[Rfam]
RNA sequence: UGUCAUAAACCCGUAGAUCCGAUCUUGUGGCGUAAUUGGCAACCCAAGCUCGAUUCUGUGGGUUUCUGUCAC
Numbered sequence: 001u002g003u004c005a006u007a008a009a010c011c012c013g014u015a016g017a018u019c020c021g022a023u024c025u026u027g028u029g030g031c032g033u034a035a036u037u038g039g040c041a042a043c044c045c046a047a048g049c050u051c052g053a054u055u056c057u058g059u060g061g062g063u064u065u066c067u068g069u070c071a072c
Base pairs, nucleotide, nucleotide: 002070004068005067007065010062011061012060015057016056017055020052021051022050024048025047026046027045029043
The family of this 72-nucleotide RNA sequence from Triplophysa tibetana is "mir-10 microRNA precursor family". It scores 53 bits against the family's covariance model. A reference for the family is Lee and Ambros (2001), "An extensive class of small RNAs in Caenorhabditis elegans", Science. Rfam 15.1 lists 3,853 matches to the family in 853 species. Its family is annotated with miRNA-mediated post-transcriptional gene silencing and RISC complex in the Gene Ontology.